A member of the RNA family "Hairpin ribozyme 2 from viruses-like metatranscriptomes", 259 nucleotides long.
RNA sequence: UAAACGGGUUAUUGUGGCCCGGUGCUGUGUGUGGUACCUGGGGAUCGGCUCCAGAGGGGUUGGCAAACAGCAACUAAAGACUUAGUCUUGGCGAGGAGAAAUCCAGGGUAGCUCCCAUCUGAGUACGUCGCAAGCCAACGCGCCAAUCCGGAGAAUGGGGUGAAACUCCUCUGAAAUCCGGUGUUGCUUCAUUCCACACGAAGCACAAACAAACUGAAACACUUCAGAGGUUGUUGAUCUGAAGGCACAUUAAGUUUGA
Numbered sequence: 001u002a003a004a005c006g007g008g009u010u011a012u013u014g015u016g017g018c019c020c021g022g023u024g025c026u027g028u029g030u031g032u033g034g035u036a037c038c039u040g041g042g043g044a045u046c047g048g049c050u051c052c053a054g055a056g057g058g059g060u061u062g063g064c065a066a067a068c069a070g071c072a073a074c075u076a077a078a079g080a081c082u083u084a085g086u087c088u089u090g091g092c093g094a095g096g097a098g099a100a101a102u103c104c105a106g107g108g109u110a111g112c113u114c115c116c117a118u119c120u121g122a123g124u125a126c127g128u129c130g131c132a133a134g135c136c137a138a139c140g141c142g143c144c145a146a147u148c149c150g151g152a153g154a155a156u157g158g159g160g161u162g163a164a165a166c167u168c169c170u171c172u173g174a175a176a177u178c179c180g181g182u183g184u185u186g187c188u189u190c191a192u193u194c195c196a197c198a199c200g201a202a203g204c205a206c207a208a209a210c211a212a213a214c215u216g217a218a219a220c221a222c223u224u225c226a227g228a229g230g231u232u233g234u235u236g237a238u239c240u241g242a243a244g245g246c247a248c249a250u251u252a253a254g255u256u257u258g259a
Base pairs, nucleotide, nucleotide: 005021006020007019008018009017022206023205024204025203030198031197032196033195034194036192038054039053040052041051059139060138061137062136063135077089078088079087080086090129091128092127093126211257212256213255214254222244223243224242225241226240227239228238

The family's consensus secondary structure is taken from published work. About the family: Hairpin-meta ribozymes were recognised in metatranscriptomic sequences of viruses-like organisms, it was proved by co-transcriptional assays that hairpin-meta1 and hairpin-meta2 non-coding RNA (ncRNAs) are catalytically active and it is suggested that they likely replicate as circular single-stranded RNAs. The sequence is in the family's curated seed alignment.